[Rfam]
RNA: L31-Actinobacteria ribosomal protein leader
RNA sequence: UCGGUUCCGGUUCACGUCGUUCGCAUCCGCGCGAGGACGACCCGGAGCA
Numbered sequence: 001u002c003g004g005u006u007c008c009g010g011u012u013c014a015c016g017u018c019g020u021u022c023g024c025a026u027c028c029g030c031g032c033g034a035g036g037a038c039g040a041c042c043c044g045g046a047g048c049a
Stems, first nucleotide, its partner, number of pairs: 005049001007045004015039004021034003